[Rfam]
RNA sequence: CCUCCUACUGUGGCAUAUGGCUUUUUAUUCCUAUGUGAUUGCUUUCCUAACUCACAUAGGGCAGAAAGUCAUGCACUGCACAGGAGA
Numbered sequence: 001c002c003u004c005c006u007a008c009u010g011u012g013g014c015a016u017a018u019g020g021c022u023u024u025u026u027a028u029u030c031c032u033a034u035g036u037g038a039u040u041g042c043u044u045u046c047c048u049a050a051c052u053c054a055c056a057u058a059g060g061g062c063a064g065a066a067a068g069u070c071a072u073g074c075a076c077u078g079c080a081c082a083g084g085a086g087a
Stems, first nucleotide, its partner, number of pairs: 002086005009080005016073009029061010
RNA: mir-135 microRNA precursor family
Organism: Hymenochirus boettgeri